[Rfam]
This 127-nucleotide RNA sequence from Takifugu rubripes belongs to the Rfam family "Small nucleolar RNA SNORA65". A search with the family's covariance model found it, with a score of 97 bits. Rfam links the family to the GO terms RNA processing and nucleolus. The literature on the family includes a 2001 paper in EMBO J by Huttenhofer et al., "RNomics: an experimental approach that identifies 201 candidates for novel, small, non-messenger RNAs in mouse". Rfam classes the family as an H/ACA-box small nucleolar RNA. The organism belongs to Takifugu, within Eukaryota. Clan: SNORA65 clan.
RNA sequence: CCCGCCACUAUACCAGUCUGCCAGGGUGACUGGCUGUAAUCCAGUGGAGGCUCAGAUUGACCCAGCUUUAGGAAACAGGGCUGCCCAGCCUAGUGGGCAUCUCUGUGCCGAAAAGUCUGGAACAUGU
Numbered sequence: 001c002c003c004g005c006c007a008c009u010a011u012a013c014c015a016g017u018c019u020g021c022c023a024g025g026g027u028g029a030c031u032g033g034c035u036g037u038a039a040u041c042c043a044g045u046g047g048a049g050g051c052u053c054a055g056a057u058u059g060a061c062c063c064a065g066c067u068u069u070a071g072g073a074a075a076c077a078g079g080g081c082u083g084c085c086c087a088g089c090c091u092a093g094u095g096g097g098c099a100u101c102u103c104u105g106u107g108c109c110g111a112a113a114a115g116u117c118u119g120g121a122a123c124a125u126g127u
Base pairs, nucleotide, nucleotide: 005047006046007045008044009043018032020030021028062120063119064118065117066115067114068113069112071109072108076105077104078103079102080101084097085096086095